[Rfam]
RNA sequence: AGAUGCAUGAUGAGCAUAUUUUCUGAGUAUGUUGAGAAAAUCAUUGAAGUUUUUAUGGAUGAUUUCAGCGUCU
Dot-bracket structure: (((((...............................................................)))))
RNA: Small nucleolar RNA SNORD109A